Small Cajal body specific RNA 4: a 129-nucleotide RNA from Suricata suricatta.
It is annotated as a small Cajal body RNA.
Its family is annotated with nucleolus, Cajal body and RNA processing in the Gene Ontology.
The family's consensus secondary structure was predicted with RNAfold.
The literature on the family includes a 2002 paper in EMBO J by Darzacq et al., "Cajal body-specific small nuclear RNAs: a novel class of 2'-O-methylation and pseudouridylation guide RNAs".
Rfam describes the family as follows. scaRNAs are a specific class of small nuclear RNAs which localise to the Cajal bodies and guide the modification of RNA polymerase II transcribed spliceosomal RNAs U1, U2, U4, U5 and U12. ACA26 belongs to the H/ACA box class of guide RNAs as it has the predicted hairpin-hinge-hairpin-tail structure, conserved H/ACA-box motifs and is found associated with GAR1.
The source organism's lineage runs through Eukaryota, Craniata, Sarcopterygii, Tetrapoda and Suricata.
RNA sequence: ACAAAGCAAUACAGAAGUCUGGGUCUGGUGAAGCAAGACUCUGCUGAUACAAUCCUCCUAGAGAACUGGGUGGGCGAGAGCAGCCCUCACUGGAGCACGCCCCGGGGCUGACUGUGCGACCCGGCAUGC
Numbered sequence: 001a002c003a004a005a006g007c008a009a010u011a012c013a014g015a016a017g018u019c020u021g022g023g024u025c026u027g028g029u030g031a032a033g034c035a036a037g038a039c040u041c042u043g044c045u046g047a048u049a050c051a052a053u054c055c056u057c058c059u060a061g062a063g064a065a066c067u068g069g070g071u072g073g074g075c076g077a078g079a080g081c082a083g084c085c086c087u088c089a090c091u092g093g094a095g096c097a098c099g100c101c102c103c104g105g106g107g108c109u110g111a112c113u114g115u116g117c118g119a120c121c122c123g124g125c126a127u128g129c
Stems, first nucleotide, its partner, number of pairs: 002061001005056002008053001017045001019043001021041006068122004079113002081110007092101002
Dot-bracket structure: .(..((.(........(.(.((((((.........)))))).).).......).))....)......((((.......(((((((((....((......))..))))))).)).....)))).......